[Rfam]
RNA sequence: GCGCCGGUCACAGGAGAGAGGGCCUCAGUGCCCCGCCGAAGGCGCAAACUCCCAUAAUCGCUCAGGCAACAGUACUGCGACACCAAA
Numbered sequence: 001g002c003g004c005c006g007g008u009c010a011c012a013g014g015a016g017a018g019a020g021g022g023c024c025u026c027a028g029u030g031c032c033c034c035g036c037c038g039a040a041g042g043c044g045c046a047a048a049c050u051c052c053c054a055u056a057a058u059c060g061c062u063c064a065g066g067c068a069a070c071a072g073u074a075c076u077g078c079g080a081c082a083c084c085a086a087a
Stems, first nucleotide, its partner, number of pairs: 007081003011077003020033004035067003038063002042061003048055001
Background: Glycine riboswitch aptamer: an 87-nucleotide sequence from Marinobacterium stanieri. NCBI's taxonomy places the organism under Bacteria, Pseudomonadati, Pseudomonadota, Oceanospirillaceae, Marinobacterium. The pairing is the family consensus, mapped onto this sequence. The match comes from Rfam's covariance-model search (60 bits).